[Rfam]
RNA sequence: ACCGGACCCGGUGAAAACCCGGGUGGCUCUUUCGGCCGCCGACCCGCCGAACAACG
Numbered sequence: 001a002c003c004g005g006a007c008c009c010g011g012u013g014a015a016a017a018c019c020c021g022g023g024u025g026g027c028u029c030u031u032u033c034g035g036c037c038g039c040c041g042a043c044c045c046g047c048c049g050a051a052c053a054a055c056g
Base pairs, nucleotide, nucleotide: 006024007023008022009021010020011019012017031051032050033049034048035047036046
This 56-nucleotide sequence from Allobosea lathyri belongs to the Rfam family "sul1 RNA".